[Rfam]
RNA: Histone 3' UTR stem-loop
RNA sequence: ACAAAGGCUCUUUUAAGAGCCACACACUUCUCUGAGCAAACAUCCU
Numbered sequence: 001a002c003a004a005a006g007g008c009u010c011u012u013u014u015a016a017g018a019g020c021c022a023c024a025c026a027c028u029u030c031u032c033u034g035a036g037c038a039a040a041c042a043u044c045c046u
Stems, first nucleotide, its partner, number of pairs: 006021006